RNA sequence: AAUAGGAGCAUCACAAAUCAUAUUUUUCCUUUCGAUUUUUAGCAUUUUUAGUUGUAUUUGAAUUCUUUUAGAAGGAAAAAGAUGAAAAUUAAGAGAAAAAAAUCUGAUUUGUUAUGCUCCUAUU
Numbered sequence: 001a002a003u004a005g006g007a008g009c010a011u012c013a014c015a016a017a018u019c020a021u022a023u024u025u026u027u028c029c030u031u032u033c034g035a036u037u038u039u040u041a042g043c044a045u046u047u048u049u050a051g052u053u054g055u056a057u058u059u060g061a062a063u064u065c066u067u068u069u070a071g072a073a074g075g076a077a078a079a080a081g082a083u084g085a086a087a088a089u090u091a092a093g094a095g096a097a098a099a100a101a102a103u104c105u106g107a108u109u110u111g112u113u114a115u116g117c118u119c120c121u122a123u124u
Stems, first nucleotide, its partner, number of pairs: 001124011013112008022103001023101005029095004034090006041083001045079004
MIR7504 microRNA precursor family: a 124-nucleotide RNA from Gossypium stocksii. The family's consensus secondary structure was predicted with RNAalifold. Gene Ontology terms of the family: miRNA-mediated post-transcriptional gene silencing and RISC complex.